[Rfam]
RNA sequence: GCUUUCUCCCAGAUUGCGCCUGGGUGAUAAGCGAGCGUCGAACUGGUUGCAGCCGGUUCGGCGCUCAUUUUUUCGUUU
Numbered sequence: 001g002c003u004u005u006c007u008c009c010c011a012g013a014u015u016g017c018g019c020c021u022g023g024g025u026g027a028u029a030a031g032c033g034a035g036c037g038u039c040g041a042a043c044u045g046g047u048u049g050c051a052g053c054c055g056g057u058u059c060g061g062c063g064c065u066c067a068u069u070u071u072u073u074c075g076u077u078u
Base pairs, nucleotide, nucleotide: 001032002031003030006026008024009023010022011021012020034065035064036063037062038061039060040059041058042057043056044055045054046053047052
Shown here is a 78-nucleotide sequence from Corynebacterium jeikeium, a member of the family "ctRNA".
Rfam's curators put it in the seed alignment.
Its family is annotated with mRNA binding in the Gene Ontology.
Rfam's curators write: Rolling circle replication plasmids contain a number of mechanisms to maintain a low copy number. One of these methods is to transcribe a small RNA called ctRNA (for counter-transcribed RNA) than is transcribed on the opposite strand to RepB the replication initiation protein. ctRNA binds to the mRNA of repB and causes translational inhibition.
The source organism's lineage runs through Bacteria, Bacillati, Actinomycetota, Corynebacteriaceae and Corynebacterium.
Rfam classes the family as an antisense RNA.
On this family, see Venkova-Canova et al., J Bacteriol 2003: "Control of rep gene expression in plasmid pGA1 from Corynebacterium glutamicum".